[Rfam]
RNA sequence: AGCCUCUGGAGAGACCCGUUAAAUCGGGCGCCGAAGGAGCAAGCUUUCCUUUUUGCUGUUUUAACAUGCAUGGAAAGUGAAACUCUCAGGCAAAAGGACAGAGGAGAUAAG
Numbered sequence: 001a002g003c004c005u006c007u008g009g010a011g012a013g014a015c016c017c018g019u020u021a022a023a024u025c026g027g028g029c030g031c032c033g034a035a036g037g038a039g040c041a042a043g044c045u046u047u048c049c050u051u052u053u054u055g056c057u058g059u060u061u062u063a064a065c066a067u068g069c070a071u072g073g074a075a076a077g078u079g080a081a082a083c084u085c086u087c088a089g090g091c092a093a094a095a096g097g098a099c100a101g102a103g104g105a106g107a108u109a110a111g
Stems, first nucleotide, its partner, number of pairs: 003104006015028004030091003033087002037085003043078007
The family of this 111-nucleotide sequence from Photobacterium profundum is "Glycine riboswitch aptamer".